[Rfam]
RNA sequence: UUUGAGGGGAAUGUUGUCUGGCUCGAGGACUUUUUCUUGAUCAAUCUAAUCGAACUUUCUACCAGUAGAUCUAGUAUCUUAUUUAAGAUUGAUCACGUAUUAGGGUUGUCGGACCAGGCUUCAUUCCCCCCAAU
Numbered sequence: 001u002u003u004g005a006g007g008g009g010a011a012u013g014u015u016g017u018c019u020g021g022c023u024c025g026a027g028g029a030c031u032u033u034u035u036c037u038u039g040a041u042c043a044a045u046c047u048a049a050u051c052g053a054a055c056u057u058u059c060u061a062c063c064a065g066u067a068g069a070u071c072u073a074g075u076a077u078c079u080u081a082u083u084u085a086a087g088a089u090u091g092a093u094c095a096c097g098u099a100u101u102a103g104g105g106u107u108g109u110c111g112g113a114c115c116a117g118g119c120u121u122c123a124u125u126c127c128c129c130c131c132a133a134u
Stems, first nucleotide, its partner, number of pairs: 002133003006129008016119006024111003
Dot-bracket structure: .(((.((((((((..((((((..(((..................................................................................)))..))))))..)))))))).))).

Rfam assigns this 134-nucleotide RNA sequence from Populus tomentosa to the family "mir-166 microRNA precursor family". Taxonomically the source falls in Populus (Eukaryota, Streptophytina, Mesangiospermae, Gunneridae). This family represents the plant microRNA (miRNA) precursor mir-166. The match comes from Rfam's covariance-model search (88 bits). The base pairs follow the family's consensus structure, which was predicted with PFOLD.